[Rfam]
RNA sequence: UGUGUGCGAUAGUUUGGCAGUGUUUGUUAGCUGGUUGAAUAUUUAAAUGGCACCAGCUGACAGACAGCUGCUUUCCUAUUGCAUGUA
Dot-bracket structure: ((((((((((((...((((((((..((((((((((....(((....)))..))))))))))..)).))))))...))))))))))))